[Rfam]
The family of this 88-nucleotide RNA from Chrysochloris asiatica is "mir-204 microRNA precursor family". The source organism's lineage runs through Eukaryota, Deuterostomia, Vertebrata, Dipnotetrapodomorpha and Chrysochloris. It scores 92 bits against the family's covariance model. A reference for the family is Chen et al. (2005), "The developmental miRNA profiles of zebrafish as determined by small RNA cloning", Genes Dev.
RNA sequence: AUGUGACCAGUGGGCUUCCCUUUGUCAUCCUUUGCCUAGGGCUCUGUAUGGGGCAAGGACAGCAAAGGGCUGCUCAGUUGUCACCUCU
Dot-bracket structure: .................(((((.((..(((((.((((.............)))))))))..)).)))))...................
Numbered sequence: 001a002u003g004u005g006a007c008c009a010g011u012g013g014g015c016u017u018c019c020c021u022u023u024g025u026c027a028u029c030c031u032u033u034g035c036c037u038a039g040g041g042c043u044c045u046g047u048a049u050g051g052g053g054c055a056a057g058g059a060c061a062g063c064a065a066a067g068g069g070c071u072g073c074u075c076a077g078u079u080g081u082c083a084c085c086u087c088u
Stems, first nucleotide, its partner, number of pairs: 018069005024063002028059005034054004